RNA sequence: AAUCGGCCUACGACACCAGGCACGUGUGCCCACCGUCGAGCCGAGGGGAAUGAGCCGCAGCAACAGCAGCCAUUAGGAUGGAAAGCUGAAAAAGUACUCGUUGGGCAGGGUUUGGUAGGUCGCUUCGGCGAUUCGAAGAAGUCGGGCUCA
Numbered sequence: 001a002a003u004c005g006g007c008c009u010a011c012g013a014c015a016c017c018a019g020g021c022a023c024g025u026g027u028g029c030c031c032a033c034c035g036u037c038g039a040g041c042c043g044a045g046g047g048g049a050a051u052g053a054g055c056c057g058c059a060g061c062a063a064c065a066g067c068a069g070c071c072a073u074u075a076g077g078a079u080g081g082a083a084a085g086c087u088g089a090a091a092a093a094g095u096a097c098u099c100g101u102u103g104g105g106c107a108g109g110g111u112u113u114g115g116u117a118g119g120u121c122g123c124u125u126c127g128g129c130g131a132u133u134c135g136a137a138g139a140a141g142u143c144g145g146g147c148u149c150a
Base pairs, nucleotide, nucleotide: 003044004043005042006041007040011038012037013036014035019030020029021028022027046056047055058088059087060086061085070077071076102150103149104148105147106146108143109142111140112139113138118133119132120131121130122129

Shown here is a 150-nucleotide RNA sequence, a member of the family "RT-3 RNA". The family's RNA type in Rfam is small RNA.